Shown here is a 557-nucleotide sequence from Aquila chrysaetos, a member of the family "Vertebrate telomerase RNA". A search with the family's covariance model found it, with a score of 121 bits. A reference for the family is Fragnet et al. (2005), "Comparative functional study of the viral telomerase RNA based on natural mutations", J Biol Chem. About the family: Telomerase is a ribonucleoprotein reverse transcriptase that synthesises telomeric DNA. Telomerase RNAs differ greatly in sequence and structure between vertebrates, ciliates and yeasts, but they share a 5' pseudoknot structure close to the template sequence. Vertebrate telomerase RNAs have a 3' H/ACA snoRNA-like domain. Rfam classes the family as a non-coding RNA gene. The base pairs follow the family's consensus structure, which is taken from published work. Rfam links the family to the GO terms telomerase activity, telomerase catalytic core complex and telomere maintenance via telomerase.
RNA sequence: UCGCGUGGCGGGUGGGGAGGCCCUGGUGUGACUAACCCUAAUGGCUGCUGCCGCGCUCCCCCGCGCCCGUCCGCUGUUUUACUCGCUGACUUUCAGCGGACGAGGGGAGUAGCCUGGGUAGGGGUAGGGGGUGGUGAGAGGGAGCGGGGGGGGGAAGGGGGUCCGCCACCAAAAAAAAAAAAAAACGUCAGCGAGGGGUCUCCUCACCCCGGCCCGCCCUGGGGUCCCUGUGCCCCGUCCCCCGCCCCGCAGCCGGGGGCCCGCCGCGGAGGUUCCCGCCGCCGCUAUCCCACCACCCUCUUCCCGCAGAGGCCGCGGUCGGCCGGCUCCCGCCACUGCCGCCGCGAAGAGCUCGUCUCUGUCAGCCUCGGCGGCGGCCGGGAGCGAAGGGGCGACCCCCCCCCCCCUCCUCCUCCUCCUCCUCUCCCACCCACCCGCUCCCCCUCUACCCCCGCGCCGGGGGGGCCCCAGCAGAGCAAAACGGGAGCGGUGCCCCCGGGUCAACCGCCGCGCUUCCCUCAGCCGUGGGGCGCGCGGCCGGCGCCGCUCCGACACGC
Numbered sequence: 001u002c003g004c005g006u007g008g009c010g011g012g013u014g015g016g017g018a019g020g021c022c023c024u025g026g027u028g029u030g031a032c033u034a035a036c037c038c039u040a041a042u043g044g045c046u047g048c049u050g051c052c053g054c055g056c057u058c059c060c061c062c063g064c065g066c067c068c069g070u071c072c073g074c075u076g077u078u079u080u081a082c083u084c085g086c087u088g089a090c091u092u093u094c095a096g097c098g099g100a101c102g103a104g105g106g107g108a109g110u111a112g113c114c115u116g117g118g119u120a121g122g123g124g125u126a127g128g129g130g131g132u133g134g135u136g137a138g139a140g141g142g143a144g145c146g147g148g149g150g151g152g153g154g155a156a157g158g159g160g161g162u163c164c165g166c167c168a169c170c171a172a173a174a175a176a177a178a179a180a181a182a183a184a185a186c187g188u189c190a191g192c193g194a195g196g197g198g199u200c201u202c203c204u205c206a207c208c209c210c211g212g213c214c215c216g217c218c219c220u221g222g223g224g225u226c227c228c229u230g231u232g233c234c235c236c237g238u239c240c241c242c243c244g245c246c247c248c249g250c251a252g253c254c255g256g257g258g259g260c261c262c263g264c265c266g267c268g269g270a271g272g273u274u275c276c277c278g279c280c281g282c283c284g285c286u287a288u289c290c291c292a293c294c295a296c297c298c299u300c301u302u303c304c305c306g307c308a309g310a311g312g313c314c315g316c317g318g319u320c321g322g323c324c325g326g327c328u329c330c331c332g333c334c335a336c337u338g339c340c341g342c343c344g345c346g347a348a349g350a351g352c353u354c355g356u357c358u359c360u361g362u363c364a365g366c367c368u369c370g371g372c373g374g375c376g377g378c379c380g381g382g383a384g385c386g387a388a389g390g391g392g393c394g395a396c397c398c399c400c401c402c403c404c405c406c407c408u409c410c411u412c413c414u415c416c417u418c419c420u421c422c423u424c425u426c427c428c429a430c431c432c433a434c435c436c437g438c439u440c441c442c443c444c445u446c447u448a449c450c451c452c453c454g455c456g457c458c459g460g461g462g463g464g465g466c467c468c469c470a471g472c473a474g475a476g477c478a479a480a481a482c483g484g485g486a487g488c489g490g491u492g493c494c495c496c497c498g499g500g501u502c503a504a505c506c507g508c509c510g511c512g513c514u515u516c517c518c519u520c521a522g523c524c525g526u527g528g529g530g531c532g533c534g535c536g537g538c539c540g541g542c543g544c545c546g547c548u549c550c551g552a553c554a555c556g557c
Stems, first nucleotide, its partner, number of pairs: 004216002007213001009211001010209008019200005055110005068102009085192006091185003219471007257399003262394004272385007281375005314346005320341004325334003348360004485549010508537005515530004
The family is grouped with related families in Rfam's "Telomerase clan".